The record is a 133-nucleotide RNA from Rhodospirillum rubrum, which matches "TPP riboswitch aptamer (THI element)" in Rfam. Rfam's curators write: Vitamin B(1) in its active form thiamin pyrophosphate (TPP) is an essential coenzyme that is synthesised by coupling of pyrimidine and thiazole moieties in bacteria. Gene Ontology term of the family: thiamine pyrophosphate binding. NCBI's taxonomy places the organism under Bacteria, Pseudomonadota, Rhodospirillales, Rhodospirillaceae, Rhodospirillum rubrum.

RNA sequence: AACCUGUUCCAGGGGGGCCCCGGCAAGGGGCUGAGAUACCGAUGGCUGAAGGGGGCUUUCCCCGAGGGCGCGCGGUGACCCUUCGAACCUGAUCCGGGUCAUGCCGGCGAAGGGACGGAACGCGGGCCGGCGC
Numbered sequence: 001a002a003c004c005u006g007u008u009c010c011a012g013g014g015g016g017g018c019c020c021c022g023g024c025a026a027g028g029g030g031c032u033g034a035g036a037u038a039c040c041g042a043u044g045g046c047u048g049a050a051g052g053g054g055g056c057u058u059u060c061c062c063c064g065a066g067g068g069c070g071c072g073c074g075g076u077g078a079c080c081c082u083u084c085g086a087a088c089c090u091g092a093u094c095c096g097g098g099u100c101a102u103g104c105c106g107g108c109g110a111a112g113g114g115a116c117g118g119a120a121c122g123c124g125g126g127c128c129g130g131c132g133c
Base pairs, nucleotide, nucleotide: 006121007120008119009118010117011082012081013080014079017031018030019029020028021027038076039075040074041073088113089112090111094107095106096105097104